[Rfam]
The family of this 109-nucleotide RNA from Peptoclostridium litorale is "Glycine riboswitch aptamer".

RNA sequence: AUGAAAUUUGCGGGAAAUAUCCUUUAUACUCUCAGGAUAGCCGAAGAUGCAAUAUGGGCAUAGCCAACUGUCCAUAGAAACUUUCAGGCCCUCAGACCGCAUUUUGAUG
Number, nucleotide and partner (000 for none) at each position: 001a000002u000003g000004a000005a000006a104007u000008u000009u101010g100011c099012g098013g097014g000015a000016a000017a000018u000019a038020u037021c036022c035023u000024u000025u000026a000027u000028a000029c000030u000031c000032u000033c000034a000035g022036g021037a020038u019039a000040g089041c088042c087043g085044a084045a000046g000047a083048u000049g081050c000051a000052a000053u076054a075055u074056g073057g072058g071059c070060a069061u000062a000063g000064c000065c000066a000067a000068c000069u060070g059071u058072c057073c056074a055075u054076a053077g000078a000079a000080a000081c049082u000083u047084u044085c043086a000087g042088g041089c040090c000091c000092u000093c000094a000095g000096a000097c013098c012099g011100c010101a009102u000103u000104u006105u000106g000107a000108u000109g000
From the family's description: This family represents the bacterial glycine riboswitch.
It scores 49 bits against the family's covariance model.
Lineage of the source: Bacteria > Bacillota > Peptoclostridiaceae > Peptoclostridium > Peptoclostridium litorale.